[Rfam]
RNA sequence: CCCAAGAUGUUGCCUUUUUCUGCAUUUGCACCUGCACCUUCUUCUCUCUCUCUCUCUUGAUCAUGGAAAACAAGAGAAAUCUCUCUCUCUCUCUCUUUCUUGAUCAUGGAAAACAAGAGAAAUUAGAGGAGGUGCAGAUGUAUAUGCAGAUGAAUGCCACUUUGGG
Numbered sequence: 001c002c003c004a005a006g007a008u009g010u011u012g013c014c015u016u017u018u019u020c021u022g023c024a025u026u027u028g029c030a031c032c033u034g035c036a037c038c039u040u041c042u043u044c045u046c047u048c049u050c051u052c053u054c055u056c057u058u059g060a061u062c063a064u065g066g067a068a069a070a071c072a073a074g075a076g077a078a079a080u081c082u083c084u085c086u087c088u089c090u091c092u093c094u095c096u097u098u099c100u101u102g103a104u105c106a107u108g109g110a111a112a113a114c115a116a117g118a119g120a121a122a123u124u125a126g127a128g129g130a131g132g133u134g135c136a137g138a139u140g141u142a143u144a145u146g147c148a149g150a151u152g153a154a155u156g157c158c159a160c161u162u163u164g165g166g
Stems, first nucleotide, its partner, number of pairs: 001166006008159002012157002015154003019150007027142004032137008055075005061069001
This 166-nucleotide RNA from Sesamum indicum belongs to the Rfam family "MIR530 microRNA precursor family". The base pairs follow the family's consensus structure, which was predicted with WAR. The family has 3 seed sequences and 119 matches in Rfam 15.1.